Shown here is a 93-nucleotide sequence from Corynebacterium uropygiale, a member of the family "SAM riboswitch aptamer (S box leader)".
RNA sequence: AACCUAUUCAGAGCGGCCGAGAGAUCCGGCUCAGCGACGCCGCAGCAACCCCCGAAGCCUCGGAAGGGUGCUAACGCCGGAAGUCAAUAGGGA
Numbered sequence: 001a002a003c004c005u006a007u008u009c010a011g012a013g014c015g016g017c018c019g020a021g022a023g024a025u026c027c028g029g030c031u032c033a034g035c036g037a038c039g040c041c042g043c044a045g046c047a048a049c050c051c052c053c054g055a056a057g058c059c060u061c062g063g064a065a066g067g068g069u070g071c072u073a074a075c076g077c078c079g080g081a082a083g084u085c086a087a088u089a090g091g092g093a
Stems, first nucleotide, its partner, number of pairs: 003091006013043005021032003026080004044072004049068002052063003076085001

Record summary:
Taxonomically the source falls in Corynebacterium (Bacteria, Actinomycetota, Actinomycetes, Mycobacteriales). Gene Ontology term of the family: regulation of gene expression.